[Rfam]
RNA sequence: ACACGAGGAAGGAGGUGGUCUGAAGUUGAAUGACUUGUGGACACGUGAGGUGACUGUCAGCUAGUCGCACGUUGCUGACGGAGUUCAGUGGCGCCGAUGGAGUUUCACUGACCGCGCACGCGGCUGGCGAAUCCCCGGCAGUCGCCCGACCCCCGAGCCCCCGGCUGUCCAGCCGGGACCCGCGCCCGAGACGCUCUGAUCGUCCGACGCCGGUAUGGUUCGGGGGUCGCCCCGU
Numbered sequence: 001a002c003a004c005g006a007g008g009a010a011g012g013a014g015g016u017g018g019u020c021u022g023a024a025g026u027u028g029a030a031u032g033a034c035u036u037g038u039g040g041a042c043a044c045g046u047g048a049g050g051u052g053a054c055u056g057u058c059a060g061c062u063a064g065u066c067g068c069a070c071g072u073u074g075c076u077g078a079c080g081g082a083g084u085u086c087a088g089u090g091g092c093g094c095c096g097a098u099g100g101a102g103u104u105u106c107a108c109u110g111a112c113c114g115c116g117c118a119c120g121c122g123g124c125u126g127g128c129g130a131a132u133c134c135c136c137g138g139c140a141g142u143c144g145c146c147c148g149a150c151c152c153c154c155g156a157g158c159c160c161c162c163g164g165c166u167g168u169c170c171a172g173c174c175g176g177g178a179c180c181c182g183c184g185c186c187c188g189a190g191a192c193g194c195u196c197u198g199a200u201c202g203u204c205c206g207a208c209g210c211c212g213g214u215a216u217g218g219u220u221c222g223g224g225g226g227u228c229g230c231c232c233c234g235u
Base pairs, nucleotide, nucleotide: 014058015057016056017055018054019053060128061127062126063125064124065123067121068120073116074115075114147229148228149227150226151225152224153223154222155221156220157219158218159217160177161176162175163174164173165172
The record is a 235-nucleotide RNA from Speluncibacter jeojiensis, which matches "Actinobacteria sRNA Ms_IGR-5" in Rfam. Lineage of the source: Bacteria > Bacillati > Actinomycetes > Speluncibacteraceae > Speluncibacter. For this family Rfam cites "Identification of small RNAs in Mycobacterium smegmatis using heterologous Hfq" (Li et al., RNA, 2013). A search with the family's covariance model found it, with a score of 118 bits. Pairs were carried over by alignment from the consensus structure.